[Rfam]
RNA sequence: GUGGAAGCUCCAUCUAUAAAUGGCUAAUACUUUUGUAUAUGAAUUUAUGAAUUUUUGAAGAUAAGAUAACAAUCCCCCAAUAUAUUGGGGGAUUGUUAUCUUGU
Numbered sequence: 001g002u003g004g005a006a007g008c009u010c011c012a013u014c015u016a017u018a019a020a021u022g023g024c025u026a027a028u029a030c031u032u033u034u035g036u037a038u039a040u041g042a043a044u045u046u047a048u049g050a051a052u053u054u055u056u057g058a059a060g061a062u063a064a065g066a067u068a069a070c071a072a073u074c075c076c077c078c079a080a081u082a083u084a085u086u087g088g089g090g091g092a093u094u095g096u097u098a099u100c101u102u103g104u
Stems, first nucleotide, its partner, number of pairs: 010023004063102013077088003
RNA: Plastid-psbA-1 3UTR RNA